[Rfam]
RNA sequence: GGCGUAAAGCGCCCGCAGGCGGCUUGGCAAGUUUCCGGUGAAAUCUCCCGGCUUAACUGGGAGAGGUCCGGGAAAACUGCCAGGCUUGAGGCAUGGAGAGGGAUGCGGAAUUCCAGGUGUAGCGGUGAAAUGCGUAGAUAUCUGGAGGAACACCAGUGGCGAAGGCGGCAUCCUGGCCAUGUCCUGACGCUCAGGGGCGAAAGCGUGGGGAGCAAACCGGAUUAGAUACCCGGGUAGUCCACGCCGUAAACGAUGAGUACUAGGUGUAGGAGGUAUCGACCCCUUCUGUGCCGAAGCUAACGCGAUAAGUACUCCGCCUGGGGACUACGGCCGCAAGGCUAAAACUCAAAGGAAU
Numbered sequence: 001g002g003c004g005u006a007a008a009g010c011g012c013c014c015g016c017a018g019g020c021g022g023c024u025u026g027g028c029a030a031g032u033u034u035c036c037g038g039u040g041a042a043a044u045c046u047c048c049c050g051g052c053u054u055a056a057c058u059g060g061g062a063g064a065g066g067u068c069c070g071g072g073a074a075a076a077c078u079g080c081c082a083g084g085c086u087u088g089a090g091g092c093a094u095g096g097a098g099a100g101g102g103a104u105g106c107g108g109a110a111u112u113c114c115a116g117g118u119g120u121a122g123c124g125g126u127g128a129a130a131u132g133c134g135u136a137g138a139u140a141u142c143u144g145g146a147g148g149a150a151c152a153c154c155a156g157u158g159g160c161g162a163a164g165g166c167g168g169c170a171u172c173c174u175g176g177c178c179a180u181g182u183c184c185u186g187a188c189g190c191u192c193a194g195g196g197g198c199g200a201a202a203g204c205g206u207g208g209g210g211a212g213c214a215a216a217c218c219g220g221a222u223u224a225g226a227u228a229c230c231c232g233g234g235u236a237g238u239c240c241a242c243g244c245c246g247u248a249a250a251c252g253a254u255g256a257g258u259a260c261u262a263g264g265u266g267u268a269g270g271a272g273g274u275a276u277c278g279a280c281c282c283c284u285u286c287u288g289u290g291c292c293g294a295a296g297c298u299a300a301c302g303c304g305a306u307a308a309g310u311a312c313u314c315c316g317c318c319u320g321g322g323g324a325c326u327a328c329g330g331c332c333g334c335a336a337g338g339c340u341a342a343a344a345c346u347c348a349a350a351g352g353a354a355u
Base pairs, nucleotide, nucleotide: 001318002317003316009315011198012197013196014195018191019190020189022085023084024083025082026081027080028079030078031077032074033073034072035071036070037069038068045063046062047061048060049059050058051057089185090184091183092181093180094179095178096177100174101173102172103171104170105169106168107151111147112146113145114144115143116142117141118140122133123132124131159166160165203244204243205242206241207240208239212238213237217233218232219231220230255314256313257312258311259310260309263292264291265290266289267288268287269286270285271284272283273282296303297302320347321346322345329340330339331338332337